[Rfam]
RNA sequence: CUAUGGGUGAGAGUCCCGACAUGGUAAAAAGCCGGAGCCAUGCAGCCAGUAUGGCAGGUAGUUAUGGAAACGUAACCAUCUAAGUCCAUCGACAAAGUCCGUGCAAAGGUGGGCCAGAAAAUAUCCGGGUUGUAAAUAAC
Numbered sequence: 001c002u003a004u005g006g007g008u009g010a011g012a013g014u015c016c017c018g019a020c021a022u023g024g025u026a027a028a029a030a031g032c033c034g035g036a037g038c039c040a041u042g043c044a045g046c047c048a049g050u051a052u053g054g055c056a057g058g059u060a061g062u063u064a065u066g067g068a069a070a071c072g073u074a075a076c077c078a079u080c081u082a083a084g085u086c087c088a089u090c091g092a093c094a095a096a097g098u099c100c101g102u103g104c105a106a107a108g109g110u111g112g113g114c115c116a117g118a119a120a121a122u123a124u125c126c127g128g129g130u131u132g133u134a135a136a137u138a139a140c
Stems, first nucleotide, its partner, number of pairs: 020042005051089004056081004061076001065072002097114006117133001119131001
The record is a 140-nucleotide RNA sequence from a Patescibacteria group bacterium, which matches "Group II catalytic intron D1-D4-4" in Rfam. About the family: Group II introns are found in rRNA, tRNA and mRNA of organelles in fungi, plants and protists, and also in mRNA in bacteria.